[Rfam]
RNA sequence: CAAACGAUAUAGCAAUGCCCUCGUAUAAUAAUGGGAAUAGGGCCCAUAAGUUUCUACCCGGUGACCGUAAAUCACUGGACUAUGAGGGAAAGUAGCGCGUUC
Number, nucleotide and partner (000 for none) at each position: 001c000002a000003a000004a000005c000006g000007a000008u000009a000010u000011a000012g000013c000014a000015a000016u000017g000018c088019c087020c086021u085022c084023g083024u082025a081026u000027a000028a000029u049030a000031a047032u046033g045034g044035g043036a000037a000038u000039a000040g000041g000042g000043c035044c034045c033046a032047u031048a000049a029050g000051u000052u000053u000054c000055u000056a000057c000058c078059c077060g076061g075062u074063g073064a072065c000066c000067g000068u000069a000070a000071a000072u064073c063074a062075c061076u060077g059078g058079a000080c000081u025082a024083u023084g022085a021086g020087g019088g018089a000090a000091a000092g000093u000094a000095g000096c000097g000098c000099g000100u000101u000102c000

Record summary: The family of this 102-nucleotide RNA from Neobacillus piezotolerans is "Purine riboswitch aptamer". The organism belongs to Neobacillus, within Bacteria. About the family: Riboswitches are metabolite binding domains within certain messenger RNAs that serve as precision sensors for their corresponding targets. Pairs were carried over by alignment from the consensus structure, which is taken from published work.